RNA sequence: CCAUAAAGAGAAGGUGAGAGACAAGCUCAAUGACCCUUCAGCAACCCCUACUUACUAGCUCGGUGCUAAAGCUUGAAUGAUGGAUUAACAUUAAGGUCCAUUAUGG
Numbered sequence: 001c002c003a004u005a006a007a008g009a010g011a012a013g014g015u016g017a018g019a020g021a022c023a024a025g026c027u028c029a030a031u032g033a034c035c036c037u038u039c040a041g042c043a044a045c046c047c048c049u050a051c052u053u054a055c056u057a058g059c060u061c062g063g064u065g066c067u068a069a070a071g072c073u074u075g076a077a078u079g080a081u082g083g084a085u086u087a088a089c090a091u092u093a094a095g096g097u098c099c100a101u102u103a104u105g106g
Stems, first nucleotide, its partner, number of pairs: 001106005010039005018028003022075004040067004045063002048058003071101001076092004081087001

Background: Rfam assigns this 106-nucleotide sequence from Clostridium sp. CAG:307 to the family "SAM riboswitch aptamer (S box leader)". The organism belongs to Clostridium, within Bacteria. It scores 54 bits against the family's covariance model. About the family: The SAM riboswitch is found upstream of a number of genes which code for proteins involved in methionine or cysteine biosynthesis in Gram-positive bacteria.